Description:
A member of the RNA family "Streptomyces sRNA 4677" from Streptomyces echinatus, 245 nucleotides long. The base pairs follow the family's consensus structure. The family has 12 seed sequences and 563 matches in Rfam 15.1. From the family's description: Located in the intergenic region between anti-sigma factor SCO4677 gene and a putative regulatory protein gene SCO4676. scr4677 expression requires the SCO4677 activity and scr4677 sRNA itself seem to affect the levels of the SCO4676-associated transcripts.
[Rfam]
RNA sequence: AGUUCCGGUGGCGCCGGCCGCCUAGAGCCAAGGACGGACGGGGGGAAAGAACCCCACCGAGCCCCACCCCUCCCGCCCGGAGCGCACGCUCACUCGGGUGGGUGAAUAUGCCCCGGUCAGCUGGAUUUUGUGGACCCGGGCGGCUCUACGCUCGGCACAACACAACCGAAGACAUGCGACGGCCCCCGCCGGGACGGCAAUCCCAGUGCGAGGGCCUGACCACCGAGGAAGGUAAGGACUUCCCG
Numbered sequence: 001a002g003u004u005c006c007g008g009u010g011g012c013g014c015c016g017g018c019c020g021c022c023u024a025g026a027g028c029c030a031a032g033g034a035c036g037g038a039c040g041g042g043g044g045g046a047a048a049g050a051a052c053c054c055c056a057c058c059g060a061g062c063c064c065c066a067c068c069c070c071u072c073c074c075g076c077c078c079g080g081a082g083c084g085c086a087c088g089c090u091c092a093c094u095c096g097g098g099u100g101g102g103u104g105a106a107u108a109u110g111c112c113c114c115g116g117u118c119a120g121c122u123g124g125a126u127u128u129u130g131u132g133g134a135c136c137c138g139g140g141c142g143g144c145u146c147u148a149c150g151c152u153c154g155g156c157a158c159a160a161c162a163c164a165a166c167c168g169a170a171g172a173c174a175u176g177c178g179a180c181g182g183c184c185c186c187c188g189c190c191g192g193g194a195c196g197g198c199a200a201u202c203c204c205a206g207u208g209c210g211a212g213g214g215c216c217u218g219a220c221c222a223c224c225g226a227g228g229a230a231g232g233u234a235a236g237g238a239c240u241u242c243c244c245g
Stems, first nucleotide, its partner, number of pairs: 007224004016077003020074001090105006120156005181216005187210003191204004227243005